[Rfam]
RNA sequence: AAGCCAGCCAAUGAAUCUGCUUACCUGAUUGUGUUUGUGCAGACAUACUUUAAAAACUGGCAAUAGUAAAGCCAUGUUACGAGCCUUAAGGACAUUGAAGUCGUUAAGGUCCCUGAGAAUGGCUAUAACA
Numbered sequence: 001a002a003g004c005c006a007g008c009c010a011a012u013g014a015a016u017c018u019g020c021u022u023a024c025c026u027g028a029u030u031g032u033g034u035u036u037g038u039g040c041a042g043a044c045a046u047a048c049u050u051u052a053a054a055a056a057c058u059g060g061c062a063a064u065a066g067u068a069a070a071g072c073c074a075u076g077u078u079a080c081g082a083g084c085c086u087u088a089a090g091g092a093c094a095u096u097g098a099a100g101u102c103g104u105u106a107a108g109g110u111c112c113c114u115g116a117g118a119a120u121g122g123c124u125a126u127a128a129c130a
Base pairs, nucleotide, nucleotide: 003061004060005059006058007057016043017042018041019040020039071123072122073121074120083110084109085108086107087106088105089104091102092101093100
Source information:
This 130-nucleotide RNA belongs to the Rfam family "Small nucleolar RNA SNORA33". Pairs were carried over by alignment from the consensus structure, which was predicted with PFOLD. ACA33 is a member of the H/ACA class of snoRNA that guide the sites of modification of uridines to pseudouridines. Its family is annotated with RNA processing and nucleolus in the Gene Ontology.